[Rfam]
RNA sequence: AGGAGGCACAACUACAGUGGCGGCAGCCAGUCCUGGAGCCCUGGAUUCAGCUCCUGCAGUAACUACAGAGCUCUCAGCCUGCAGGGUCCUGGAUGCUCCAGGCGCAGG
Numbered sequence: 001a002g003g004a005g006g007c008a009c010a011a012c013u014a015c016a017g018u019g020g021c022g023g024c025a026g027c028c029a030g031u032c033c034u035g036g037a038g039c040c041c042u043g044g045a046u047u048c049a050g051c052u053c054c055u056g057c058a059g060u061a062a063c064u065a066c067a068g069a070g071c072u073c074u075c076a077g078c079c080u081g082c083a084g085g086g087u088c089c090u091g092g093a094u095g096c097u098c099c100a101g102g103c104g105c106a107g108g
Stems, first nucleotide, its partner, number of pairs: 002099004009091002012086002019079003023075001025074002029072003033068003037064001041059003